[Rfam]
RNA sequence: ACCAAUGAGACAGAGGCAAAUGACCUCUGUCCGUUUCGCGGUCAAAGUCUUGGGAGGAUGGAUCUAAGGCGCGGUUUGACCUGCAGCCGCCGAGCAAUCGGUAAACGAUCGACGCGAUAAUUAAAAUACAAGGCUCCGUGCCUUGUUUUUUUUU
Dot-bracket structure: ...((.....((((((.......)))))).......((((......((((.....)))).((((...((((((........))).))).(((......))).....))))..))))...........(((((((.....))))))).....)).
The record is a 154-nucleotide RNA sequence from Hoeflea prorocentri, which matches "Alphaproteobacterial sRNA ar9" in Rfam. The match comes from Rfam's covariance-model search (100 bits). By type it is a small RNA. Pairs were carried over by alignment from the consensus structure.